Shown here is a 104-nucleotide part of an RNA from Plasmodium falciparum, a member of the family "Eukaryotic large subunit ribosomal RNA". The family has 88 seed sequences and 107,465 matches in Rfam 15.1. It is one of the family's seed sequences. The organism belongs to Plasmodium falciparum, within Eukaryota.

RNA sequence: CGGCUCUUCCUAUCAUUGGGACGCAGAAGUCUCAAAGUGUCGGAUUGUUCACCCGCUAAUAGGGAACGUGAGCUGGGUUUAGACCGUCGUGAGACAGGUUAGUU
Numbered sequence: 001c002g003g004c005u006c007u008u009c010c011u012a013u014c015a016u017u018g019g020g021a022c023g024c025a026g027a028a029g030u031c032u033c034a035a036a037g038u039g040u041c042g043g044a045u046u047g048u049u050c051a052c053c054c055g056c057u058a059a060u061a062g063g064g065a066a067c068g069u070g071a072g073c074u075g076g077g078u079u080u081a082g083a084c085c086g087u088c089g090u091g092a093g094a095c096a097g098g099u100u101a102g103u104u
Base pairs, nucleotide, nucleotide: 001076002074003073004072005071006068007065008064009063010062011061014039015038017034018033019032020031021030022029041055042054043053045051082100083099084098085097086095087094088093